RNA sequence: CAAGGCCUAUGAUGGACUUGUGAUAAUAUGCCUACAUUGUCUGAUCAUUUUAACUUGAUUGAGCAAACGUUAACUGAGGCCUUG
Numbered sequence: 001c002a003a004g005g006c007c008u009a010u011g012a013u014g015g016a017c018u019u020g021u022g023a024u025a026a027u028a029u030g031c032c033u034a035c036a037u038u039g040u041c042u043g044a045u046c047a048u049u050u051u052a053a054c055u056u057g058a059u060u061g062a063g064c065a066a067a068c069g070u071u072a073a074c075u076g077a078g079g080c081c082u083u084g
Stems, first nucleotide, its partner, number of pairs: 001084002004081004
The family of this 84-nucleotide RNA sequence from Anisodus acutangulus is "Small nucleolar RNA SNORD34". About the family: snoRNA U34 is found in intron 5 of the ribosomal protein L13a gene in humans. For this family Rfam cites "Purified box C/D snoRNPs are able to reproduce site-specific 2'-O-methylation of target RNA in vitro" (Galardi et al., Mol Cell Biol, 2002). Its Rfam clan is "SNORD34 clan". The family's RNA type in Rfam is C/D-box small nucleolar RNA.